[Rfam]
RNA sequence: CGGCAAGAUAUGUGUUGCACCGGUACAGGCGAGGCCUGCACCGAUCCAACACCUCCCUGAUUCGCGGGCCGCUCAACAGGUUUUGCUCUGCGAGGCG
Numbered sequence: 001c002g003g004c005a006a007g008a009u010a011u012g013u014g015u016u017g018c019a020c021c022g023g024u025a026c027a028g029g030c031g032a033g034g035c036c037u038g039c040a041c042c043g044a045u046c047c048a049a050c051a052c053c054u055c056c057c058u059g060a061u062u063c064g065c066g067g068g069c070c071g072c073u074c075a076a077c078a079g080g081u082u083u084u085g086c087u088c089u090g091c092g093a094g095g096c097g
Base pairs, nucleotide, nucleotide: 002087003086004085005084006083007082008081009080012052013051014050015049016048017047019045021043024040026038027037028036029035057079058078064072065071066070
A member of the RNA family "traJ-II RNA" from Kerstersia gyiorum, 97 nucleotides long.
Pairs were carried over by alignment from the consensus structure, which is taken from published work.
Rfam 15.1 lists 174 matches to the family in 172 species.